[Rfam]
RNA: Group II catalytic intron D1-D4-4
RNA sequence: CUGCCGGUGUCAGUCCGGUCCGGGCAAUUGCCAGGGAGCCCGGUAGCAGGCUGGCGGCUUGGUCUGGAAACGGGCCGGGUCGGAGCCUCCAACCUACUCGGGGUGACCCAGCGGAGGUGUGCGGGAUCUUGU
Numbered sequence: 001c002u003g004c005c006g007g008u009g010u011c012a013g014u015c016c017g018g019u020c021c022g023g024g025c026a027a028u029u030g031c032c033a034g035g036g037a038g039c040c041c042g043g044u045a046g047c048a049g050g051c052u053g054g055c056g057g058c059u060u061g062g063u064c065u066g067g068a069a070a071c072g073g074g075c076c077g078g079g080u081c082g083g084a085g086c087c088u089c090c091a092a093c094c095u096a097c098u099c100g101g102g103g104u105g106a107c108c109c110a111g112c113g114g115a116g117g118u119g120u121g122c123g124g125g126a127u128c129u130u131g132u
Stems, first nucleotide, its partner, number of pairs: 020043005050093001052091003055082006064073001066071001098110001100108002113129003